[Rfam]
RNA: Potassium channel RNA editing signal
RNA sequence: GUCGGUUACGGAGAUAUUUAUCCGACCACAGUCCCUGGAAAGAUCGUUGGAAGUGUUUGUUGUAUAUGUGGCGUAUUAGUUAUUGCUCUACCUAUUCCAAUUAUAGUAAACAAC
Numbered sequence: 001g002u003c004g005g006u007u008a009c010g011g012a013g014a015u016a017u018u019u020a021u022c023c024g025a026c027c028a029c030a031g032u033c034c035c036u037g038g039a040a041a042g043a044u045c046g047u048u049g050g051a052a053g054u055g056u057u058u059g060u061u062g063u064a065u066a067u068g069u070g071g072c073g074u075a076u077u078a079g080u081u082a083u084u085g086c087u088c089u090a091c092c093u094a095u096u097c098c099a100a101u102u103a104u105a106g107u108a109a110a111c112a113a114c
Stems, first nucleotide, its partner, number of pairs: 001114002004111001007108003011104001013102003020095002037077002040074001049063001051061001